[Rfam]
RNA sequence: CUUGUAUAUGUUGCUUGUUGUCUGAAAAAACUCAGAAAUUGUCAGUGUUCUCAUCAGCUUGUCUUUCUAAAUAUGAGACUCGAGUUAAACAAGAACACGACUUUG
Numbered sequence: 001c002u003u004g005u006a007u008a009u010g011u012u013g014c015u016u017g018u019u020g021u022c023u024g025a026a027a028a029a030a031c032u033c034a035g036a037a038a039u040u041g042u043c044a045g046u047g048u049u050c051u052c053a054u055c056a057g058c059u060u061g062u063c064u065u066u067c068u069a070a071a072u073a074u075g076a077g078a079c080u081c082g083a084g085u086u087a088a089a090c091a092a093g094a095a096c097a098c099g100a101c102u103u104u105g
Stems, first nucleotide, its partner, number of pairs: 045098006056086006062078004

Small nucleolar RNA snoR97: a 105-nucleotide RNA sequence from Raphanus sativus. The family has 7 seed sequences and 862 matches in Rfam 15.1. NCBI's taxonomy places the organism under Eukaryota, Viridiplantae, Streptophytina, Tracheophyta, Raphanus. It scores 74 bits against the family's covariance model. It is annotated as an H/ACA-box small nucleolar RNA.